The family of this 120-nucleotide RNA from Fictibacillus macauensis is "PyrR binding site". The family's consensus secondary structure is taken from published work. The match comes from Rfam's covariance-model search (69 bits). The literature on the family includes a 2001 paper in Nucleic Acids Res by Bonner et al., "Molecular recognition of pyr mRNA by the Bacillus subtilis attenuation regulatory protein PyrR". The organism belongs to Fictibacillus macauensis, within Bacteria. It is annotated as a cis-regulatory element.
[Rfam]
RNA sequence: AAUCCCUUUAAAUAAAGUCCAGAGAGGCUUGCAAGGGAGGUCGCAAAUCUGUGCACAGUGCUUUGCUAUGUACAGGUCUGCUUAAUGUAACCUCCUUUGCGGCAAAGGAGGUAUUUUUUU
Numbered sequence: 001a002a003u004c005c006c007u008u009u010a011a012a013u014a015a016a017g018u019c020c021a022g023a024g025a026g027g028c029u030u031g032c033a034a035g036g037g038a039g040g041u042c043g044c045a046a047a048u049c050u051g052u053g054c055a056c057a058g059u060g061c062u063u064u065g066c067u068a069u070g071u072a073c074a075g076g077u078c079u080g081c082u083u084a085a086u087g088u089a090a091c092c093u094c095c096u097u098u099g100c101g102g103c104a105a106a107g108g109a110g111g112u113a114u115u116u117u118u119u120u
Stems, first nucleotide, its partner, number of pairs: 003038006015030005047077009057067003087115001090112010